[Rfam]
Rfam assigns this 92-nucleotide RNA from Pseudomonas sp. BAY1663 to the family "Selenocysteine transfer RNA". Clan: tRNA clan. Its family is annotated with triplet codon-amino acid adaptor activity in the Gene Ontology. A search with the family's covariance model found it, with a score of 80 bits. Pairs were carried over by alignment from the consensus structure, which is taken from published work.
RNA sequence: GGAAGGCAAUCGCAGCCGGUGCUGCGGCCGGGCUUCAAACCCGGUUGGGGACGGCAGCCGUUCCCGGGUGAGUUCGACUCUCACUGCCUUCC
Numbered sequence: 001g002g003a004a005g006g007c008a009a010u011c012g013c014a015g016c017c018g019g020u021g022c023u024g025c026g027g028c029c030g031g032g033c034u035u036c037a038a039a040c041c042c043g044g045u046u047g048g049g050g051a052c053g054g055c056a057g058c059c060g061u062u063c064c065c066g067g068g069u070g071a072g073u074u075c076g077a078c079u080c081u082c083a084c085u086g087c088c089u090u091c092c
Stems, first nucleotide, its partner, number of pairs: 001092008011026006027045006047065005069083004